Shown here is a 284-nucleotide RNA from Sciurus vulgaris, a member of the family "Mason-Pfizer monkey virus packaging signal". A reference for the family is Mustafa et al. (2004), "Mutational analysis of the predicted secondary RNA structure of the Mason-Pfizer monkey virus packaging signal", Virus Res. Gene Ontology term of the family: viral genome packaging. The match comes from Rfam's covariance-model search (147 bits). The family's consensus secondary structure was predicted with PFOLD. Lineage of the source: Eukaryota > Sarcopterygii > Mammalia > Theria > Sciurus.
[Rfam]
RNA sequence: UGGCGCCCAAUGGUGUGGCUUGGAUACUGGGGAAUUUGCAAGGGAAGAGGCGUGUAAGUGUUCGGCCAAAGGAAAAAAAAAAAAAAGUGAAAGUGAAAGUCAAUUCCCCGGGGAGCCUACCACGCCACACUUAAAGGUACAGUAGCACCUAACUAUGGGACAAGAAUUAAGUAAGCAUAGAGUUUUUGUUAAGCAAUUAAAAGAAGCUUUAAAGACACAGGGAGUAAAGGUUAAGAGUAAUGAUCUUUUUAAGUUUUUUGACCUUAUUAAGGACAUCUCUCCGU
Numbered sequence: 001u002g003g004c005g006c007c008c009a010a011u012g013g014u015g016u017g018g019c020u021u022g023g024a025u026a027c028u029g030g031g032g033a034a035u036u037u038g039c040a041a042g043g044g045a046a047g048a049g050g051c052g053u054g055u056a057a058g059u060g061u062u063c064g065g066c067c068a069a070a071g072g073a074a075a076a077a078a079a080a081a082a083a084a085a086a087g088u089g090a091a092a093g094u095g096a097a098a099g100u101c102a103a104u105u106c107c108c109c110g111g112g113g114a115g116c117c118u119a120c121c122a123c124g125c126c127a128c129a130c131u132u133a134a135a136g137g138u139a140c141a142g143u144a145g146c147a148c149c150u151a152a153c154u155a156u157g158g159g160a161c162a163a164g165a166a167u168u169a170a171g172u173a174a175g176c177a178u179a180g181a182g183u184u185u186u187u188g189u190u191a192a193g194c195a196a197u198u199a200a201a202a203g204a205a206g207c208u209u210u211a212a213a214g215a216c217a218c219a220g221g222g223a224g225u226a227a228a229g230g231u232u233a234a235g236a237g238u239a240a241u242g243a244u245c246u247u248u249u250u251a252a253g254u255u256u257u258u259u260g261a262c263c264u265u266a267u268u269a270a271g272g273a274c275a276u277c278u279c280u281c282c283g284u
Stems, first nucleotide, its partner, number of pairs: 006032003013027003037056004094137001100133001108124001111121002143163001145161001148159004168211003171207002218260008228246006269284001271282003